[Rfam]
Small nucleolar RNA SNORA53: a 194-nucleotide RNA from Ictidomys tridecemlineatus. Rfam links the family to the GO terms RNA processing and nucleolus. The family's RNA type in Rfam is H/ACA-box small nucleolar RNA. Rfam's curators write: The snoRNA ACA53 belongs to the H/ACA family of pseudouridylation guide snoRNAs. Pairs were carried over by alignment from the consensus structure, which was predicted with RNAalifold.

RNA sequence: AACAUGCUUCCUUAGAUCCACCUUUGUGGAUGAGUCUUGGGCUGAGUUCUACUUGUAAACUUUCUUGUUCCUGUAGUUUCCAGUCAAAGAACAUCCGGCAACUUUUUUGGUUGUAUAGUCAAAGGUGCUGAGUCAUGGCAUGUGAGAUCAUAUACCUGCAUGCUAGUCUCAGGUUCUGAUGGGAAUUGGCAUGC
Numbered sequence: 001a002a003c004a005u006g007c008u009u010c011c012u013u014a015g016a017u018c019c020a021c022c023u024u025u026g027u028g029g030a031u032g033a034g035u036c037u038u039g040g041g042c043u044g045a046g047u048u049c050u051a052c053u054u055g056u057a058a059a060c061u062u063u064c065u066u067g068u069u070c071c072u073g074u075a076g077u078u079u080c081c082a083g084u085c086a087a088a089g090a091a092c093a094u095c096c097g098g099c100a101a102c103u104u105u106u107u108u109g110g111u112u113g114u115a116u117a118g119u120c121a122a123a124g125g126u127g128c129u130g131a132g133u134c135a136u137g138g139c140a141u142g143u144g145a146g147a148u149c150a151u152a153u154a155c156c157u158g159c160a161u162g163c164u165a166g167u168c169u170c171a172g173g174u175u176c177u178g179a180u181g182g183g184a185a186u187u188g189g190c191a192u193g194c
Stems, first nucleotide, its partner, number of pairs: 002143007011132005019127008027097006035090004041084004046080001049076004055070001057069002098114006156189003160186001163183001166180003